RNA: U4 spliceosomal RNA
Organism: Rhipicephalus sanguineus
RNA sequence: UUCUUUGCGCAGAGGCGGUGUCGUACCCAAUGGAGUUCAUACUGAGGGGCGACUAUUGCUAGCUGAAUUUUUUUUUUUCGUUUUCUUGGACACUGUGGAUUUCCCUAGCUGUGUUGUGUACCACAUAUCUAGCAAUUGGUGAA
Numbered sequence: 001u002u003c004u005u006u007g008c009g010c011a012g013a014g015g016c017g018g019u020g021u022c023g024u025a026c027c028c029a030a031u032g033g034a035g036u037u038c039a040u041a042c043u044g045a046g047g048g049g050c051g052a053c054u055a056u057u058g059c060u061a062g063c064u065g066a067a068u069u070u071u072u073u074u075u076u077u078u079c080g081u082u083u084u085c086u087u088g089g090a091c092a093c094u095g096u097g098g099a100u101u102u103c104c105c106u107a108g109c110u111g112u113g114u115u116g117u118g119u120a121c122c123a124c125a126u127a128u129c130u131a132g133c134a135a136u137u138g139g140u141g142a143a
Base pairs, nucleotide, nucleotide: 020053021052022051023050024049026048027047028046034043035042036041087123088122089121090119091118092117093116095114096113097112099110